[Rfam]
Notes: A member of the RNA family "Enterococcus sRNA 2410" from Enterococcus hermanniensis, 197 nucleotides long. Rfam 15.1 lists 74 matches to the family in 56 species. Produced as 2 transcripts on Northern blot. Expressed in mid, late exponential and early stationary phases of growth. For this family Rfam cites "Small RNAs in vancomycin-resistant Enterococcus faecium involved in daptomycin response and resistance" (Sinel et al., Sci Rep, 2017). It is annotated as a small RNA.
RNA sequence: UUAGCUAUUUUAGAUAGGUUUGUAUUCAUGAUUCAUGGAUGCAGACGACACGCGUUUGUAUCUAUGAUGGCUAAGGAUUUUAAGUAUGACUUAAUGCCACAUAGAUGAGAAUCUAUAGUGGCUUUUUUCUUUGGUAUUUUUUGGGGAAUGAGGUUCAUUGUAGGUUUUCUACAAUGGACCUUUUUUCGUAUUUAAAA
Numbered sequence: 001u002u003a004g005c006u007a008u009u010u011u012a013g014a015u016a017g018g019u020u021u022g023u024a025u026u027c028a029u030g031a032u033u034c035a036u037g038g039a040u041g042c043a044g045a046c047g048a049c050a051c052g053c054g055u056u057u058g059u060a061u062c063u064a065u066g067a068u069g070g071c072u073a074a075g076g077a078u079u080u081u082a083a084g085u086a087u088g089a090c091u092u093a094a095u096g097c098c099a100c101a102u103a104g105a106u107g108a109g110a111a112u113c114u115a116u117a118g119u120g121g122c123u124u125u126u127u128u129c130u131u132u133g134g135u136a137u138u139u140u141u142u143g144g145g146g147a148a149u150g151a152g153g154u155u156c157a158u159u160g161u162a163g164g165u166u167u168u169c170u171a172c173a174a175u176g177g178a179c180c181u182u183u184u185u186u187c188g189u190a191u192u193u194a195a196a197a
Stems, first nucleotide, its partner, number of pairs: 001074007011064006018046012049058002078147004083142002086139001090133001096122005102115003150185003
Dot-bracket structure: (((((((...((((((.((((((((((((.....))))))))))))..((......))))))))...)))))))...((((.((.(...(.....(((((.(((........)))..)))))..........).....).)).))))..(((..............................)))............
About this RNA
The match comes from Rfam's covariance-model search (71 bits). The source organism's lineage runs through Bacteria, Bacillota, Bacilli, Lactobacillales and Enterococcus.